[Rfam]
RNA sequence: GCCAAUACCGUCUAGGGUUCCGUUGUGUAUUAACACAGGCUGGUCCGAGAGACGGAUGUACCUAAAGAUAGAAAACAUCCUUAGGUAUAACACGGAAGGAUAAAAGCCUGGGAGAA
Number, nucleotide and partner (000 for none) at each position: 001g000002c000003c000004a000005a000006u000007a000008c055009c054010g053011u052012c051013u000014a000015g046016g045017g000018u000019u000020c043021c042022g040023u038024u037025g036026u035027g034028u033029a000030u000031u000032a000033a028034c027035a026036c025037a024038g023039g000040c022041u000042g021043g020044u000045c016046c015047g000048a000049g000050a000051g012052a011053c010054g009055g008056a000057u089058g088059u087060a086061c085062c084063u083064a082065a000066a000067g000068a000069u000070a000071g000072a000073a000074a000075a000076c000077a000078u000079c000080c000081u000082u064083a063084g062085g061086u060087a059088u058089a057090a000091c111092a000093c114094g000095g000096a000097a109098g108099g107100a000101u000102a000103a000104a000105a000106g000107c099108c098109u097110g000111g091112g000113a000114g093115a000116a000

This 116-nucleotide sequence from Fontibacillus panacisegetis belongs to the Rfam family "Guanidine-I riboswitch aptamer".